Overview: A member of the RNA family "COG2827 RNA" from Clostridium sp. chh4-2, 84 nucleotides long. It scores 81 bits against the family's covariance model. The organism belongs to Clostridium, within Bacteria.
RNA sequence: GCUGGUGCUUUAGAUAGAUACAGGACUUUAAUUAAAACCUGGGCGGCAGCUGUGCUAUUGCAAGGCACAGAUGCCGCUUACAUA
Numbered sequence: 001g002c003u004g005g006u007g008c009u010u011u012a013g014a015u016a017g018a019u020a021c022a023g024g025a026c027u028u029u030a031a032u033u034a035a036a037a038c039c040u041g042g043g044c045g046g047c048a049g050c051u052g053u054g055c056u057a058u059u060g061c062a063a064g065g066c067a068c069a070g071a072u073g074c075c076g077c078u079u080a081c082a083u084a
Base pairs, nucleotide, nucleotide: 021041022040023039024038042078043077044076045075046074047073048072050070051069052068053067054066055065

Pairs were carried over by alignment from the consensus structure, which is taken from published work.